[Rfam]
RNA sequence: UCUUGUUCCUAAGUACUAGUGCCGCAGGAGUGUAUGUCCCUACUCCUGCUGCUUCAGUGCUUAUCAAUGAGU
Numbered sequence: 001u002c003u004u005g006u007u008c009c010u011a012a013g014u015a016c017u018a019g020u021g022c023c024g025c026a027g028g029a030g031u032g033u034a035u036g037u038c039c040c041u042a043c044u045c046c047u048g049c050u051g052c053u054u055c056a057g058u059g060c061u062u063a064u065c066a067a068u069g070a071g072u
Stems, first nucleotide, its partner, number of pairs: 002071006010063008019054001024049007
Dot-bracket structure: .((((((..((((((((.(....(((((((............)))))))....).))))))))..)))))).
Rfam assigns this 72-nucleotide RNA from Helicoverpa armigera to the family "mir-252 microRNA precursor family". Its Rfam clan is "mir-252 microRNA precursor family". Rfam links the family to the GO terms miRNA-mediated post-transcriptional gene silencing and RISC complex. The base pairs follow the family's consensus structure, which was predicted with RNAalifold. NCBI's taxonomy places the organism under Eukaryota, Opisthokonta, Aparaglossata, Noctuidae, Helicoverpa. A search with the family's covariance model found it, with a score of 67 bits. For this family Rfam cites "Direct sequencing and expression analysis of a large number of miRNAs in Aedes aegypti and a multi-species survey of novel mosquito miRNAs" (Li et al., BMC Genomics, 2009).